A member of the RNA family "Hairy RNA localisation element (HLE)" from Drosophila virilis, 125 nucleotides long.
RNA sequence: AUUGACAUUUCACCACAUUUCGCCAGGAUAACGCAAAUGUUGCUUUGAAGUGUUCCGAGCAUGCGAGACUCCUAAUUUGUUGAAAUCUCGCCGAAGUUCAUUUUCCACUGGAAAAUGCCCAUCGA
Numbered sequence: 001a002u003u004g005a006c007a008u009u010u011c012a013c014c015a016c017a018u019u020u021c022g023c024c025a026g027g028a029u030a031a032c033g034c035a036a037a038u039g040u041u042g043c044u045u046u047g048a049a050g051u052g053u054u055c056c057g058a059g060c061a062u063g064c065g066a067g068a069c070u071c072c073u074a075a076u077u078u079g080u081u082g083a084a085a086u087c088u089c090g091c092c093g094a095a096g097u098u099c100a101u102u103u104u105c106c107a108c109u110g111g112a113a114a115a116u117g118c119c120c121a122u123c124g125a
Stems, first nucleotide, its partner, number of pairs: 006052006016039004021033002092124003096120001099117006106110001